Record summary
This 87-nucleotide RNA sequence from Monodelphis domestica belongs to the Rfam family "mir-146 microRNA precursor family". The sequence is in the family's curated seed alignment. On this family, see Lagos-Quintana et al., Curr Biol 2002: "Identification of tissue-specific microRNAs from mouse". Rfam 15.1 lists 1,617 matches to the family in 642 species.
RNA sequence: UUGUAUCUUCAGCUUUGAGAACUGAAUUCCAUGGGUUGUCUUUGUAUCAGACCUAUGAAACUCAGUUCUUCAGCUGGAAUAUCUCUG
Number, nucleotide and partner (000 for none) at each position: 001u000002u000003g000004u000005a000006u000007c000008u078009u077010c000011a075012g074013c073014u000015u000016u000017g000018a069019g068020a067021a066022c065023u064024g063025a062026a000027u000028u000029c000030c000031a000032u000033g054034g053035g052036u051037u000038g000039u000040c000041u000042u000043u000044g000045u000046a000047u000048c000049a000050g000051a036052c035053c034054u033055a000056u000057g000058a000059a000060a000061c000062u025063c024064a023065g022066u021067u020068c019069u018070u000071c000072a000073g013074c012075u011076g000077g009078a008079a000080u000081a000082u000083c000084u000085c000086u000087g000